[Rfam]
RNA sequence: UGCAAGUAUUUUACGGUUAAGGAGCAACUGCUCCUUGUACAGAUUGUGUAUUAAUCU
Dot-bracket structure: .................((((((((....))))))))....................
Numbered sequence: 001u002g003c004a005a006g007u008a009u010u011u012u013a014c015g016g017u018u019a020a021g022g023a024g025c026a027a028c029u030g031c032u033c034c035u036u037g038u039a040c041a042g043a044u045u046g047u048g049u050a051u052u053a054a055u056c057u
Stems, first nucleotide, its partner, number of pairs: 018037008
The family of this 57-nucleotide RNA sequence is "Plastid-rps18 3UTR RNA". The base pairs follow the family's consensus structure, which was predicted with LocARNA. By type it is a cis-regulatory element. The family has 238 seed sequences and 1,462 matches in Rfam 15.1. About the family: Plastid rps18 is a non-coding RNA (ncRNA) present in plastids. It was identified as a short stem-loop motif in the 3 prime untranslate region (3UTR) of rps18 gene. The literature on the family includes a 2023 paper in Plant Commun by Richter et al., "Retrograde signaling in plants: A critical review focusing on the GUN pathway and beyond".